The family of this 145-nucleotide sequence is "lysM-TM7 RNA". By type it is a cis-regulatory element. The sequence is in the family's curated seed alignment.
[Rfam]
RNA sequence: GCCUACCAAAACGGUCGUACGGAUACAGCACAAAACUAAUCGUUUAUGAAAUAUCACUAAUUAUUAGGUCGACAACGUAUCCUGUUCUAUUGCGAGAAGAAAGACAGUUUGGUAGUAGCACUGGCGGCAACGCUGGUGCAAGGAG
Numbered sequence: 001g002c003c004u005a006c007c008a009a010a011a012c013g014g015u016c017g018u019a020c021g022g023a024u025a026c027a028g029c030a031c032a033a034a035a036c037u038a039a040u041c042g043u044u045u046a047u048g049a050a051a052u053a054u055c056a057c058u059a060a061u062u063a064u065u066a067g068g069u070c071g072a073c074a075a076c077g078u079a080u081c082c083u084g085u086u087c088u089a090u091u092g093c094g095a096g097a098a099g100a101a102a103g104a105c106a107g108u109u110u111g112g113u114a115g116u117a118g119c120a121c122u123g124g125c126g127g128c129a130a131c132g133c134u135g136g137u138g139c140a141a142g143g144a145g
Stems, first nucleotide, its partner, number of pairs: 003115007014105003021082006085098004118139003122135005